[Rfam]
RNA sequence: CGGGCGGUGAAGUCCCAGGGUGUUUCCGGGUCGAGCAGGCCCUGUUCGCCGAAGUGGGCGCCGUCGGCGAGGACGCCGAGACGAUUCUGCUCGCCGAAUUCGCCCUCGCUGAGCUUUUCGACCUUGCCGUGGGCGAGGAGGAACAGGGUGUCGACGGGCUGGCCGGCUUCGGCCAGGAGCUCGCCGGGGGCGAACUCGCGCUGGGUGAAGCGGUCGGCGAGCGCGGUGAGGACCGCGGUGUCCUCGAAGGAGCGCAGCAGGGCGAGUUCGCCGAGUUCGGCGGGGACGACCCGUACUUGUGAUCCGGUUUUGACGAAGGUCACCUUGCCGUCGCCGACGGAGUAGGUCAGCCGGCGGUUGACCCGGUAGGUGCCGGCCGUGACUUCUACCCAGGGCAGCAUGCGCAGCAGCCAGCGGGAGGAGAUUCCCGCCAUCUGAGGUGCGGACUUGGUGGUGGUCGCCAGAUUCCGGGCAGCAGCCGUAUCAAGGCUCGUAUGGGAAGGGCUG
Numbered sequence: 001c002g003g004g005c006g007g008u009g010a011a012g013u014c015c016c017a018g019g020g021u022g023u024u025u026c027c028g029g030g031u032c033g034a035g036c037a038g039g040c041c042c043u044g045u046u047c048g049c050c051g052a053a054g055u056g057g058g059c060g061c062c063g064u065c066g067g068c069g070a071g072g073a074c075g076c077c078g079a080g081a082c083g084a085u086u087c088u089g090c091u092c093g094c095c096g097a098a099u100u101c102g103c104c105c106u107c108g109c110u111g112a113g114c115u116u117u118u119c120g121a122c123c124u125u126g127c128c129g130u131g132g133g134c135g136a137g138g139a140g141g142a143a144c145a146g147g148g149u150g151u152c153g154a155c156g157g158g159c160u161g162g163c164c165g166g167c168u169u170c171g172g173c174c175a176g177g178a179g180c181u182c183g184c185c186g187g188g189g190g191c192g193a194a195c196u197c198g199c200g201c202u203g204g205g206u207g208a209a210g211c212g213g214u215c216g217g218c219g220a221g222c223g224c225g226g227u228g229a230g231g232a233c234c235g236c237g238g239u240g241u242c243c244u245c246g247a248a249g250g251a252g253c254g255c256a257g258c259a260g261g262g263c264g265a266g267u268u269c270g271c272c273g274a275g276u277u278c279g280g281c282g283g284g285g286a287c288g289a290c291c292c293g294u295a296c297u298u299g300u301g302a303u304c305c306g307g308u309u310u311u312g313a314c315g316a317a318g319g320u321c322a323c324c325u326u327g328c329c330g331u332c333g334c335c336g337a338c339g340g341a342g343u344a345g346g347u348c349a350g351c352c353g354g355c356g357g358u359u360g361a362c363c364c365g366g367u368a369g370g371u372g373c374c375g376g377c378c379g380u381g382a383c384u385u386c387u388a389c390c391c392a393g394g395g396c397a398g399c400a401u402g403c404g405c406a407g408c409a410g411c412c413a414g415c416g417g418g419a420g421g422a423g424a425u426u427c428c429c430g431c432c433a434u435c436u437g438a439g440g441u442g443c444g445g446a447c448u449u450g451g452u453g454g455u456g457g458u459c460g461c462c463a464g465a466u467u468c469c470g471g472g473c474a475g476c477a478g479c480c481g482u483a484u485c486a487a488g489g490c491u492c493g494u495a496u497g498g499g500a501a502g503g504g505c506u507g
Stems, first nucleotide, its partner, number of pairs: 006390004011385002015381001018328001019325002023322001026319002031316002036312004041307002046302004051298002054233002059228006065111004075103001077102004082096002085093001118221001122217002127212001130209001132206001134204001136202002138199001140197001146196002152192002157185003160178001165174003235294003240290003244286002253279002256277003260271001262269001329342001331340002351379001353377001355375003361371003393429003397425001399423001401421001403418001405416001407415001437476001440473001443470004448464005477506002480503001482501001484499002487496001
RNA: Saccharopolyspora sRNA 350